[Rfam]
RNA sequence: AAGUGGCUAGACUCUUUUUAAAUUAGAGCACAAUUUGGUUUAAUUCCAAUUGGCUUAACCCUACCACACUCACCGAACUAGAUAACGGUGUGGUAGGGGUAAAUUCUCCGCAUUCGGUGCGG
Numbered sequence: 001a002a003g004u005g006g007c008u009a010g011a012c013u014c015u016u017u018u019u020a021a022a023u024u025a026g027a028g029c030a031c032a033a034u035u036u037g038g039u040u041u042a043a044u045u046c047c048a049a050u051u052g053g054c055u056u057a058a059c060c061c062u063a064c065c066a067c068a069c070u071c072a073c074c075g076a077a078c079u080a081g082a083u084a085a086c087g088g089u090g091u092g093g094u095a096g097g098g099g100u101a102a103a104u105u106c107u108c109c110g111c112a113u114u115c116g117g118u119g120c121g122g
Stems, first nucleotide, its partner, number of pairs: 024058001026056003031052005037046002059098012072118006108122004